Rfam assigns this 88-nucleotide RNA from Carnobacterium sp. AT7 to the family "SAM-III riboswitch aptamer (SMK box)". Its family is annotated with methionine adenosyltransferase activity and regulation of translational initiation in the Gene Ontology.
RNA sequence: GAGGUUUGCAAUUCGGAUUCCCGAGAGGAUUCACUUUUAAAGUGGAGAAGCCUUGUAACCGAAAAUUUAAAGGGGGAACAAAGUAAUG
Number, nucleotide and partner (000 for none) at each position: 001g000002a000003g000004g000005u000006u000007u000008g000009c000010a000011a000012u000013u000014c000015g000016g000017a000018u078019u077020c076021c075022c074023g000024a000025g054026a053027g052028g051029a000030u046031u045032c044033a043034c042035u000036u000037u000038u000039a000040a000041a000042g034043u033044g032045g031046a030047g000048a000049a000050g000051c028052c027053u026054u025055g000056u000057a000058a000059c073060c072061g000062a000063a000064a000065a000066u000067u000068u000069a000070a000071a000072g060073g059074g022075g021076g020077a019078a018079c000080a000081a000082a000083g000084u000085a000086a000087u000088g000
The literature on the family includes a 2008 paper in Biochem Cell Biol by Wang and Breaker, "Riboswitches that sense S-adenosylmethionine and S-adenosylhomocysteine". Taxonomically the source falls in Carnobacterium (Bacteria, Bacillota, Bacilli, Carnobacteriaceae). The family's consensus secondary structure is taken from published work.